Shown here is a 208-nucleotide sequence from Lacrimispora saccharolytica, a member of the family "Enterococcus sRNA 1300". A reference for the family is Sinel et al. (2017), "Small RNAs in vancomycin-resistant Enterococcus faecium involved in daptomycin response and resistance", Sci Rep. The source organism's lineage runs through Bacteria, Bacillati, Clostridia, Lachnospiraceae and Lacrimispora saccharolytica.

RNA sequence: AUGUAUUCUGUUCGUUUAAGAUAAGCCGGCAAUAAAAAAGCAGUUAUAGGAUCCGCUAAGUGGGCUUUUUUGUUGUGCUUUUUUUACGAAUUAAGACAUAGAUAUGGGGGAAGUGUAGCCUUUUGGGGUUAUGUGUUUUUCCAAUGUCUUUUUAACGUUAAGGUGCAGACGAAAGUUCGCUACGCGAAUUUUUGCCUGCAUUUUUUAU
Numbered sequence: 001a002u003g004u005a006u007u008c009u010g011u012u013c014g015u016u017u018a019a020g021a022u023a024a025g026c027c028g029g030c031a032a033u034a035a036a037a038a039a040g041c042a043g044u045u046a047u048a049g050g051a052u053c054c055g056c057u058a059a060g061u062g063g064g065c066u067u068u069u070u071u072g073u074u075g076u077g078c079u080u081u082u083u084u085u086a087c088g089a090a091u092u093a094a095g096a097c098a099u100a101g102a103u104a105u106g107g108g109g110g111a112a113g114u115g116u117a118g119c120c121u122u123u124u125g126g127g128g129u130u131a132u133g134u135g136u137u138u139u140u141c142c143a144a145u146g147u148c149u150u151u152u153u154a155a156c157g158u159u160a161a162g163g164u165g166c167a168g169a170c171g172a173a174a175g176u177u178c179g180c181u182a183c184g185c186g187a188a189u190u191u192u193u194g195c196c197u198g199c200a201u202u203u204u205u206u207a208u
Stems, first nucleotide, its partner, number of pairs: 006096002009093002012090001013088003019084003023080004029076013053063004097146003101141002104138001109137002113134009163201006170194002173191003177187004
Background: Expressed in mid and late exponential phases of growth. Expression remained uniform under daptomycin exposure.